[Rfam]
A member of the RNA family "Bacterial large subunit ribosomal RNA" from Sulfuritortus calidifontis, 227 nucleotides of a longer RNA.
The family's consensus secondary structure is taken from published work.
On this family, see Yusupov et al., Science 2001: "Crystal structure of the ribosome at 5.5 A resolution".
Gene Ontology terms of the family: structural constituent of ribosome and ribosome.
RNA sequence: GACUUACGUUCAGUUGCGAGCUUAACCGAAUAGGGGAGGCGUAGCGAAAGCGAGUCUGAACAGGGCGUUCAGUAGCUGGGCGUAGACCCGAAACCGGAUGAUCUAUCCAUGGCCAGGUUGAAGGUGCGGUAACACGCACUGGAGGACCGAACCCACUAGUGUUGCAAAACUAGGGGAUGAGCUGUGGAUAGGGGUGAAAGGCUAAACAAAUCCGGAAAUAGCUGGUU
Numbered sequence: 001g002a003c004u005u006a007c008g009u010u011c012a013g014u015u016g017c018g019a020g021c022u023u024a025a026c027c028g029a030a031u032a033g034g035g036g037a038g039g040c041g042u043a044g045c046g047a048a049a050g051c052g053a054g055u056c057u058g059a060a061c062a063g064g065g066c067g068u069u070c071a072g073u074a075g076c077u078g079g080g081c082g083u084a085g086a087c088c089c090g091a092a093a094c095c096g097g098a099u100g101a102u103c104u105a106u107c108c109a110u111g112g113c114c115a116g117g118u119u120g121a122a123g124g125u126g127c128g129g130u131a132a133c134a135c136g137c138a139c140u141g142g143a144g145g146a147c148c149g150a151a152c153c154c155a156c157u158a159g160u161g162u163u164g165c166a167a168a169a170c171u172a173g174g175g176g177a178u179g180a181g182c183u184g185u186g187g188a189u190a191g192g193g194g195u196g197a198a199a200g201g202c203u204a205a206a207c208a209a210a211u212c213c214g215g216a217a218a219u220a221g222c223u224g225g226u227u
Stems, first nucleotide, its partner, number of pairs: 005084013020040004026034002044051002054066004087225002090222001094215006103191011114179001116148004123140006152176003156173005193203003